[Rfam]
RNA sequence: CUGGAGUGAUGAUGCUUAGCCAAAUCAGAUACAUGCUCCAAGAGGCAUUUCAGCAAAUUGUUUGCCUCUUGUUGUAGCGUGUCUUGGACGAUACCACAGGGAAUGGUUUUUGCCUGACCAGA
Number, nucleotide and partner (000 for none) at each position: 001c121002u120003g119004g118005a000006g000007u000008g000009a000010u000011g000012a000013u000014g000015c000016u000017u000018a000019g000020c000021c000022a000023a000024a000025u000026c000027a000028g000029a000030u000031a000032c000033a000034u000035g000036c000037u000038c000039c000040a000041a000042g000043a000044g000045g000046c000047a000048u000049u000050u000051c000052a000053g000054c000055a000056a000057a000058u000059u000060g000061u000062u000063u000064g000065c000066c000067u000068c000069u000070u000071g000072u000073u000074g000075u000076a000077g000078c000079g000080u000081g000082u000083c000084u000085u000086g000087g000088a000089c000090g000091a000092u000093a000094c000095c000096a000097c000098a000099g000100g000101g000102a000103a000104u000105g000106g000107u000108u000109u000110u000111u000112g000113c000114c000115u000116g000117a000118c004119c003120a002121g001122a000

A member of the RNA family "small nucleolar RNA snoR127" from Arabis alpina, 122 nucleotides long. Rfam 15.1 lists 273 matches to the family in 170 species. It is annotated as a C/D-box small nucleolar RNA. The match comes from Rfam's covariance-model search (129 bits). A reference for the family is Chen and Wu (2009), "Mining small RNA sequencing data: a new approach to identify small nucleolar RNAs in Arabidopsis", Nucleic Acids Res. The base pairs follow the family's consensus structure, which was predicted with RNAalifold.